Shown here is a 362-nucleotide sequence from Pseudomonas sp. 21C1, a member of the family "Pseudomonas sRNA CrcZ". Rfam classes the family as a small RNA.
[Rfam]
RNA sequence: ACAACAAAAAUAACAAGACGCACCCCAUGACAAGAACAACACCACGGCUCUAGCAUAAGAAAGACAAUAAUCGCAGAGACGCAGCUAACUGAUUUCUUUGGAGAGGAACGCCAGCGGGCUUGUACCGCAACCGGGUCGAUAACAAUAAAAUCGCGUUUUAACGCAACGACAGUCGGGUUGGAUCUCAGGAUCAAGGCAACAUCAGCGUCCAAACAAAUCCGUUCGCUCCUGGCCUCCGUUGGAGGCCGCGGCUAAAACAAGAACAACAGGCCGGUAGCACUAACAAGAACGAUGAUGCAGAUACGAUUGGGGGAGUUUAGGCUCCCCUUUCUGCUUUCUGGCAUUCAGCUCUCCCAGCAUCU
Numbered sequence: 001a002c003a004a005c006a007a008a009a010a011u012a013a014c015a016a017g018a019c020g021c022a023c024c025c026c027a028u029g030a031c032a033a034g035a036a037c038a039a040c041a042c043c044a045c046g047g048c049u050c051u052a053g054c055a056u057a058a059g060a061a062a063g064a065c066a067a068u069a070a071u072c073g074c075a076g077a078g079a080c081g082c083a084g085c086u087a088a089c090u091g092a093u094u095u096c097u098u099u100g101g102a103g104a105g106g107a108a109c110g111c112c113a114g115c116g117g118g119c120u121u122g123u124a125c126c127g128c129a130a131c132c133g134g135g136u137c138g139a140u141a142a143c144a145a146u147a148a149a150a151u152c153g154c155g156u157u158u159u160a161a162c163g164c165a166a167c168g169a170c171a172g173u174c175g176g177g178u179u180g181g182a183u184c185u186c187a188g189g190a191u192c193a194a195g196g197c198a199a200c201a202u203c204a205g206c207g208u209c210c211a212a213a214c215a216a217a218u219c220c221g222u223u224c225g226c227u228c229c230u231g232g233c234c235u236c237c238g239u240u241g242g243a244g245g246c247c248g249c250g251g252c253u254a255a256a257a258c259a260a261g262a263a264c265a266a267c268a269g270g271c272c273g274g275u276a277g278c279a280c281u282a283a284c285a286a287g288a289a290c291g292a293u294g295a296u297g298c299a300g301a302u303a304c305g306a307u308u309g310g311g312g313g314a315g316u317u318u319a320g321g322c323u324c325c326c327c328u329u330u331c332u333g334c335u336u337u338c339u340g341g342c343a344u345u346c347a348g349c350u351c352u353c354c355c356a357g358c359a360u361c362u
Stems, first nucleotide, its partner, number of pairs: 045081002048078004097213004109207003128180005134174001151166001153164003232246005247340002249273004291334001294331001309328008
A search with the family's covariance model found it, with a score of 203 bits. Gene Ontology term of the family: carbon catabolite repression of transcription. Lineage of the source: Bacteria > Pseudomonadota > Gammaproteobacteria > Pseudomonadaceae > Pseudomonas. Rfam 15.1 lists 127 matches to the family in 96 species.